[Rfam]
RNA sequence: AUAGAAUUCUAUUAUUACUAAUCACAGAUCCAUGGGUACUAGAAAGCGUGGAGUGGGAGUGGGGGGUUUCUCUCCCUCACACUGCUCUGGAUUCAACAGUUUGUUAGUGCUAAGCCUCUGGCUCCCACUGACGGCAGAAGAACGUGAAGAGGCAUUCUCUGUUCGCGGUGGUUGUUUCAGAUGAAGCACUGCAAACCGGCAAGUCACAUAACGGCAAUGGACUCAGUCAUGAGUCUC
Numbered sequence: 001a002u003a004g005a006a007u008u009c010u011a012u013u014a015u016u017a018c019u020a021a022u023c024a025c026a027g028a029u030c031c032a033u034g035g036g037u038a039c040u041a042g043a044a045a046g047c048g049u050g051g052a053g054u055g056g057g058a059g060u061g062g063g064g065g066g067u068u069u070c071u072c073u074c075c076c077u078c079a080c081a082c083u084g085c086u087c088u089g090g091a092u093u094c095a096a097c098a099g100u101u102u103g104u105u106a107g108u109g110c111u112a113a114g115c116c117u118c119u120g121g122c123u124c125c126c127a128c129u130g131a132c133g134g135c136a137g138a139a140g141a142a143c144g145u146g147a148a149g150a151g152g153c154a155u156u157c158u159c160u161g162u163u164c165g166c167g168g169u170g171g172u173u174g175u176u177u178c179a180g181a182u183g184a185a186g187c188a189c190u191g192c193a194a195a196c197c198g199g200c201a202a203g204u205c206a207c208a209u210a211a212c213g214g215c216a217a218u219g220g221a222c223u224c225a226g227u228c229a230u231g232a233g234u235c236u237c
Stems, first nucleotide, its partner, number of pairs: 058088002099196006116186002220235005
Rfam assigns this 237-nucleotide RNA sequence from Morella rubra to the family "Early nodulin 40". Its family is annotated with nodulation in the Gene Ontology. The family has 35 seed sequences and 341 matches in Rfam 15.1. It scores 85 bits against the family's covariance model. The base pairs follow the family's consensus structure, which is taken from published work.